RNA sequence: CCUAUGGAGAGUACAGGAACUUGUGAGUAGUACAUGAAUUGAUUCGUUACAAAAGCAUACUCGUUGAAGUAGGAA
Numbered sequence: 001c002c003u004a005u006g007g008a009g010a011g012u013a014c015a016g017g018a019a020c021u022u023g024u025g026a027g028u029a030g031u032a033c034a035u036g037a038a039u040u041g042a043u044u045c046g047u048u049a050c051a052a053a054a055g056c057a058u059a060c061u062c063g064u065u066g067a068a069g070u071a072g073g074a075a
Stems, first nucleotide, its partner, number of pairs: 001073005009062005022057003030050003035046002

Rfam assigns this 75-nucleotide RNA to the family "RAGATH-18 RNA". Rfam describes the family as follows. Actinobacteria, Firmicutes, Fusobacteria, Thermotogae (1 example). Rfam classes the family as a small RNA. Rfam's curators put it in the seed alignment.